[Rfam]
RNA sequence: AGAUGUAAGGGUGAUCUGGCUACAACAUCUGUCACCCUGUUGAUCGCCAGGGGUGAUUUGGCUGAUCUGGGUGGCUAGGCAGCUGUCUUCUUCCUCUCUCACUGCUCCAUAUGUAGCCCUUUCAAAGCUGCAUGCUUGAUUGAAGAAGAUGACUUACCCUGAUAGAGAUGUACCAUUCAUAGGUAUAAGGAGCUGCACUCCCCUGCUAGAACCUCCAAACAAGCUCAAGGUCUAUUUAUAGGAGAAGAGAGUAGCCAGUCUUCCCGGACUGUGGACACACCCAUAUGAGGCACUGCAUGGGGCAGUGCCUGAAGGA
Numbered sequence: 001a002g003a004u005g006u007a008a009g010g011g012u013g014a015u016c017u018g019g020c021u022a023c024a025a026c027a028u029c030u031g032u033c034a035c036c037c038u039g040u041u042g043a044u045c046g047c048c049a050g051g052g053g054u055g056a057u058u059u060g061g062c063u064g065a066u067c068u069g070g071g072u073g074g075c076u077a078g079g080c081a082g083c084u085g086u087c088u089u090c091u092u093c094c095u096c097u098c099u100c101a102c103u104g105c106u107c108c109a110u111a112u113g114u115a116g117c118c119c120u121u122u123c124a125a126a127g128c129u130g131c132a133u134g135c136u137u138g139a140u141u142g143a144a145g146a147a148g149a150u151g152a153c154u155u156a157c158c159c160u161g162a163u164a165g166a167g168a169u170g171u172a173c174c175a176u177u178c179a180u181a182g183g184u185a186u187a188a189g190g191a192g193c194u195g196c197a198c199u200c201c202c203c204u205g206c207u208a209g210a211a212c213c214u215c216c217a218a219a220c221a222a223g224c225u226c227a228a229g230g231u232c233u234a235u236u237u238a239u240a241g242g243a244g245a246a247g248a249g250a251g252u253a254g255c256c257a258g259u260c261u262u263c264c265c266g267g268a269c270u271g272u273g274g275a276c277a278c279a280c281c282c283a284u285a286u287g288a289g290g291c292a293c294u295g296c297a298u299g300g301g302g303c304a305g306u307g308c309c310u311g312a313a314g315g316a
Stems, first nucleotide, its partner, number of pairs: 002107002005102002008099004013093002018090002025086003029082005035074002037070003042067004046062003116171002119167003122139004127135002140162003148157001192260001194258001198254002201251001203249002213244004219239001221237003284316001288310009
Dot-bracket structure: .((.((.((((.((...((.....(((.(((((.(((((..(((((((...........))).)))))))..))...))))).)))..)).))..)))).))...))........((.(((((((.((.....))))))(((.....(........)..)))..)))..))....................(.(...((.(.((........((((..(.(((...........))).).))))...)).).))...).).......................(...(((((((((.....))))))))).....)

7SK RNA: a 316-nucleotide sequence from Pavo cristatus. The base pairs follow the family's consensus structure, which is taken from published work. Lineage of the source: Eukaryota > Sauria > Dinosauria > Phasianidae > Pavo. The literature on the family includes a 2002 paper in Curr Biol by Blencowe, "Transcription: surprising role for an elusive small nuclear RNA". It is annotated as a non-coding RNA gene. 7SK was discovered as an abundant small nuclear RNA in the mid-70s but a possible function has only recently been suggested. Two independent studies have found that 7SK RNA binds the CDK9/cyclin T complex (known as elongation factor P-TEFb). P-TEFb activates transcription by phosphorylating the C-terminal domain of RNA polymerase II. This process is negatively regulated by the 7SK RNP. The secondary structure of 7SK RNA shown here was proposed by Wasserman and Steitz on the basis of chemical modification and enzymatic cleavage experiments. This family contains a number of annotated pseudogenes and 7SK derived repeats. The threshold is artificially high to minimise the pseudogene count.